[Rfam]
RNA sequence: GAGCAAGAUUCAGACUAGAAUAUAGCUGUUAAGUGCUGUAUUGUUAUUCCCCCUGCUCAAAAUAAAGUAAUGGUUUCUUCUUACCUAUACCUUUCUGUUAUACCCAAAUAGCAGCUAGGGCACUUGGUCACAUACAU
Numbered sequence: 001g002a003g004c005a006a007g008a009u010u011c012a013g014a015c016u017a018g019a020a021u022a023u024a025g026c027u028g029u030u031a032a033g034u035g036c037u038g039u040a041u042u043g044u045u046a047u048u049c050c051c052c053c054u055g056c057u058c059a060a061a062a063u064a065a066a067g068u069a070a071u072g073g074u075u076u077c078u079u080c081u082u083a084c085c086u087a088u089a090c091c092u093u094u095c096u097g098u099u100a101u102a103c104c105c106a107a108a109u110a111g112c113a114g115c116u117a118g119g120g121c122a123c124u125u126g127g128u129c130a131c132a133u134a135c136a137u
Stems, first nucleotide, its partner, number of pairs: 003056003007052001017044001019042008090119003095114004

Small nucleolar RNA SNORA63: a 137-nucleotide sequence from Urocitellus parryii. E3 belongs to the H/ACA class of snoRNAs and is involved in the processing of eukaryotic pre-rRNA and has regions of complementarity to 18S rRNA. E3 is encoded in introns in the gene for protein synthesis initiation factor 4AII. NCBI's taxonomy places the organism under Eukaryota, Deuterostomia, Gnathostomata, Teleostomi, Urocitellus. The match comes from Rfam's covariance-model search (94 bits).